[Rfam]
RNA sequence: AUAAUGCUACUUCCGUCCAGUCACAGCACCCCUUGGUCGGGGAAUCAGGCAAUGAGGGCGGCUCCGGGAGAUCCUCGGAGGGAUGAGAUUUCCAUGA
Numbered sequence: 001a002u003a004a005u006g007c008u009a010c011u012u013c014c015g016u017c018c019a020g021u022c023a024c025a026g027c028a029c030c031c032c033u034u035g036g037u038c039g040g041g042g043a044a045u046c047a048g049g050c051a052a053u054g055a056g057g058g059c060g061g062c063u064c065c066g067g068g069a070g071a072u073c074c075u076c077g078g079a080g081g082g083a084u085g086a087g088a089u090u091u092c093c094a095u096g097a
Stems, first nucleotide, its partner, number of pairs: 012094001013061006062080003066076003081093003
RNA: pemK RNA